Source information:
The record is a 134-nucleotide RNA from Mycoplana azooxidifex, which matches "Alphaproteobacterial sRNA ar35" in Rfam. Pairs were carried over by alignment from the consensus structure. The organism belongs to Mycoplana, within Bacteria. The family's RNA type in Rfam is small RNA. The match comes from Rfam's covariance-model search (53 bits). The literature on the family includes a 2012 paper in RNA Biol by del Val et al., "A survey of sRNA families in alpha-proteobacteria".

RNA sequence: AGUCGGGCAAGAUGUCCGCCUGCAACCUCCAGGCUGCCUAAUUCGGUCUCUGCUUUCCCUUGACCACGGAUGUACUGGCACUGUCGAAAGCGGAACCAAAGCGAGGUCAGGCAAAUUGCCUGGCCUUUUUUUUA
Numbered sequence: 001a002g003u004c005g006g007g008c009a010a011g012a013u014g015u016c017c018g019c020c021u022g023c024a025a026c027c028u029c030c031a032g033g034c035u036g037c038c039u040a041a042u043u044c045g046g047u048c049u050c051u052g053c054u055u056u057c058c059c060u061u062g063a064c065c066a067c068g069g070a071u072g073u074a075c076u077g078g079c080a081c082u083g084u085c086g087a088a089a090g091c092g093g094a095a096c097c098a099a100a101g102c103g104a105g106g107u108c109a110g111g112c113a114a115a116u117u118g119c120c121u122g123g124c125c126u127u128u129u130u131u132u133u134a
Stems, first nucleotide, its partner, number of pairs: 001035004049094007058083001061080002064078003098132004103127011